[Rfam]
RNA sequence: GGCGCGCACCUUGCUUUAACCCCGACAGGGCAAUCAACGCCGAUUGCCCCAACCCACGACAAAGGCGCCGU
Numbered sequence: 001g002g003c004g005c006g007c008a009c010c011u012u013g014c015u016u017u018a019a020c021c022c023c024g025a026c027a028g029g030g031c032a033a034u035c036a037a038c039g040c041c042g043a044u045u046g047c048c049c050c051a052a053c054c055c056a057c058g059a060c061a062a063a064g065g066c067g068c069c070g071u
Base pairs, nucleotide, nucleotide: 029048030047031046032045033044034043035042
Rfam assigns this 71-nucleotide RNA sequence from Pseudomonas jinjuensis to the family "narK RNA". The base pairs follow the family's consensus structure, which is taken from published work. Rfam classes the family as a cis-regulatory element. NCBI's taxonomy places the organism under Bacteria, Pseudomonadati, Pseudomonadota, Gammaproteobacteria, Pseudomonas. A search with the family's covariance model found it, with a score of 63 bits.